[Rfam]
The record is a 140-nucleotide RNA sequence from Populus tomentosa, which matches "mir-172 microRNA precursor family" in Rfam. mir-172 has been experimentally verified in Arabidopsis thaliana. This family is thought to target mRNAs coding for APETALA2-like transcription factors. The mature sequence is excised from the 3' arm of the hairpin.
RNA sequence: UUGUUUGCGGGUGGAGCAUCAUCAAGAUUCACAUGCAAAUGCACGGCCGGUGAUGUUAGAGUUAAAUCUCUCUUUGUUUCUGUUCAUCCGCCAAAGUUCUUUGGAAGUGAGAAUCUUGAUGAUGCUGCAUCGGCAAUAAA
Numbered sequence: 001u002u003g004u005u006u007g008c009g010g011g012u013g014g015a016g017c018a019u020c021a022u023c024a025a026g027a028u029u030c031a032c033a034u035g036c037a038a039a040u041g042c043a044c045g046g047c048c049g050g051u052g053a054u055g056u057u058a059g060a061g062u063u064a065a066a067u068c069u070c071u072c073u074u075u076g077u078u079u080c081u082g083u084u085c086a087u088c089c090g091c092c093a094a095a096g097u098u099c100u101u102u103g104g105a106a107g108u109g110a111g112a113a114u115c116u117u118g119a120u121g122a123u124g125c126u127g128c129a130u131c132g133g134c135a136a137u138a139a140a
Base pairs, nucleotide, nucleotide: 010131011130012129013128015126016125017124018123019122020121021120022119023118024117025116026115027114028113029112030111032109033108